The record is a 75-nucleotide RNA sequence from Methanosarcina sp. MTP4, which matches "tRNA" in Rfam. It scores 55 bits against the family's covariance model.
RNA sequence: GCUCCGAUAGUGUAGCUCGGCCAAUCAUUCAGGACUCUCACUCCUGCGACUGGGGUUCAAAUCCCCAUCGGAGCA
Dot-bracket structure: (((((((..(((.............))).(((((.......)))))....(((((.......)))))))))))).